About this RNA
This 84-nucleotide RNA sequence from Propithecus coquereli belongs to the Rfam family "mir-1805 microRNA precursor family". Rfam 15.1 lists 398 matches to the family in 389 species. A search with the family's covariance model found it, with a score of 69 bits. Its family is annotated with RISC complex and miRNA-mediated post-transcriptional gene silencing in the Gene Ontology.
RNA sequence: GGAAUGUUCUGGAAGCUGUAGCCUUUCAAACAGAGCUCUACCUGUGCAUAACUGCACUGGAAUAUUACAGCUCCCUGGACUUCC
Numbered sequence: 001g002g003a004a005u006g007u008u009c010u011g012g013a014a015g016c017u018g019u020a021g022c023c024u025u026u027c028a029a030a031c032a033g034a035g036c037u038c039u040a041c042c043u044g045u046g047c048a049u050a051a052c053u054g055c056a057c058u059g060g061a062a063u064a065u066u067a068c069a070g071c072u073c074c075c076u077g078g079a080c081u082u083c084c
Stems, first nucleotide, its partner, number of pairs: 001084004007079003012074001014072008024062005031054003